[Rfam]
RNA: Small nucleolar RNA SNORA70
RNA sequence: CCGCAGCCAAUUAAGCCGGCCGUGCCCCGCCCCCCCCCGGGGCCCGGCGCGCAAUGGCUGCGCACAGAGACCCCCCCGGCUGUGUAGGGACCCCCCCCGUGGGGGGCACCCAAAGGGGCCGGGGGGACAAAA
Numbered sequence: 001c002c003g004c005a006g007c008c009a010a011u012u013a014a015g016c017c018g019g020c021c022g023u024g025c026c027c028c029g030c031c032c033c034c035c036c037c038c039g040g041g042g043c044c045c046g047g048c049g050c051g052c053a054a055u056g057g058c059u060g061c062g063c064a065c066a067g068a069g070a071c072c073c074c075c076c077c078g079g080c081u082g083u084g085u086a087g088g089g090a091c092c093c094c095c096c097c098c099g100u101g102g103g104g105g106g107c108a109c110c111c112a113a114a115g116g117g118g119c120c121g122g123g124g125g126g127a128c129a130a131a132a
Stems, first nucleotide, its partner, number of pairs: 003052002019048004025042004078120003091106004